Background: Rfam assigns this 155-nucleotide sequence from Leminorella richardii to the family "TPP riboswitch aptamer (THI element)". The family's consensus secondary structure is taken from published work. Gene Ontology term of the family: thiamine pyrophosphate binding. NCBI's taxonomy places the organism under Bacteria, Pseudomonadati, Pseudomonadota, Budviciaceae, Leminorella.

[Rfam]
RNA sequence: GAUACCUCAACGGGGUGCUUAUAUCAGGCUGUGUUCUGCCGCUAUAUCCGAUGGCAGAACACAGACUAAGCUGAGAAUGCGUUCAACUGCCUGAACCUUACCCGUAGAACCUGAUCCGGUUAGUGCCGGCGGAGGGAUUUGAGAACGCGUUCGAC
Numbered sequence: 001g002a003u004a005c006c007u008c009a010a011c012g013g014g015g016u017g018c019u020u021a022u023a024u025c026a027g028g029c030u031g032u033g034u035u036c037u038g039c040c041g042c043u044a045u046a047u048c049c050g051a052u053g054g055c056a057g058a059a060c061a062c063a064g065a066c067u068a069a070g071c072u073g074a075g076a077a078u079g080c081g082u083u084c085a086a087c088u089g090c091c092u093g094a095a096c097c098u099u100a101c102c103c104g105u106a107g108a109a110c111c112u113g114a115u116c117c118g119g120u121u122a123g124u125g126c127c128g129g130c131g132g133a134g135g136g137a138u139u140u141g142a143g144a145a146c147g148c149g150u151u152c153g154a155c
Stems, first nucleotide, its partner, number of pairs: 006143005011104004017071005079096001082093001110135003116129004
Record summary:
The match comes from Rfam's covariance-model search (61 bits).